RNA sequence: GUUUGGAUUUAGACUACAACAUAGCUGUUAAGUGCUGUAUUGUCAUUCCCUCUGCUCAAAAUAAAGUUGUUUCUUGACUGUAUCUGUCUGCUAUUCCCCUGUAGCAGCCAGGGACACUUGGCCUCAUACAU
Numbered sequence: 001g002u003u004u005g006g007a008u009u010u011a012g013a014c015u016a017c018a019a020c021a022u023a024g025c026u027g028u029u030a031a032g033u034g035c036u037g038u039a040u041u042g043u044c045a046u047u048c049c050c051u052c053u054g055c056u057c058a059a060a061a062u063a064a065a066g067u068u069g070u071u072u073c074u075u076g077a078c079u080g081u082a083u084c085u086g087u088c089u090g091c092u093a094u095u096c097c098c099c100u101g102u103a104g105c106a107g108c109c110a111g112g113g114a115c116a117c118u119u120g121g122c123c124u125c126a127u128a129c130a131u
Stems, first nucleotide, its partner, number of pairs: 004054004016043004021038005083112004088107004